Rfam assigns this 352-nucleotide sequence from Harryflintia acetispora to the family "Bacterial RNase P class A".
Its Rfam clan is "RNaseP clan".
Ribonuclease P (RNase P) is a ubiquitous endoribonuclease, found in archaea, bacteria and eukarya as well as chloroplasts and mitochondria.
The family's RNA type in Rfam is ribozyme.
The match comes from Rfam's covariance-model search (274 bits).
The source organism's lineage runs through Bacteria, Bacillati, Clostridia, Oscillospiraceae and Harryflintia.
[Rfam]
RNA sequence: CGAGCAGGCCAGACGGCAGCGCGCGCAGCGCCGAAAGGCCGCGUGUGAGGAAAGUCCGAGCUCCGCAGGGCGGGAUAGCUGCUAACGGCAGCCGGGGGCGACCCCAGGGACAGUGCAACAGAGAGAUACCGCCGCGCGCUUUGCGCGGUAAGGGUGGAAAGGCGAGGUAAGAGCUCACCGGCACACUGGCGACUGUGUGGCCAUGUAAACCCUAUCCGGAGCAACACCGCAUAGAGGGCAUAAAGCGGCGGCCCGCCGCGCCCUCGGGUAGGUGGCUGGAUUUGCCCGGCGACGGGCAAACAAGAUAGAUUGUCGUCAAAUACAGAACUCGGCUUACAGACCUGGUCGGUGG
Numbered sequence: 001c002g003a004g005c006a007g008g009c010c011a012g013a014c015g016g017c018a019g020c021g022c023g024c025g026c027a028g029c030g031c032c033g034a035a036a037g038g039c040c041g042c043g044u045g046u047g048a049g050g051a052a053a054g055u056c057c058g059a060g061c062u063c064c065g066c067a068g069g070g071c072g073g074g075a076u077a078g079c080u081g082c083u084a085a086c087g088g089c090a091g092c093c094g095g096g097g098g099c100g101a102c103c104c105c106a107g108g109g110a111c112a113g114u115g116c117a118a119c120a121g122a123g124a125g126a127u128a129c130c131g132c133c134g135c136g137c138g139c140u141u142u143g144c145g146c147g148g149u150a151a152g153g154g155u156g157g158a159a160a161g162g163c164g165a166g167g168u169a170a171g172a173g174c175u176c177a178c179c180g181g182c183a184c185a186c187u188g189g190c191g192a193c194u195g196u197g198u199g200g201c202c203a204u205g206u207a208a209a210c211c212c213u214a215u216c217c218g219g220a221g222c223a224a225c226a227c228c229g230c231a232u233a234g235a236g237g238g239c240a241u242a243a244a245g246c247g248g249c250g251g252c253c254c255g256c257c258g259c260g261c262c263c264u265c266g267g268g269u270a271g272g273u274g275g276c277u278g279g280a281u282u283u284g285c286c287c288g289g290c291g292a293c294g295g296g297c298a299a300a301c302a303a304g305a306u307a308g309a310u311u312g313u314c315g316u317c318a319a320a321u322a323c324a325g326a327a328c329u330c331g332g333c334u335u336a337c338a339g340a341c342c343u344g345g346u347c348g349g350u351g352g
Stems, first nucleotide, its partner, number of pairs: 001348003005344004010339001012317007020047007028039001052335003056332005061221004068254004073217005078092005093107001094105004108212002113210002115206003129153002131149008161179002164176003181201001182199005188193001225274004234265006245259005281300008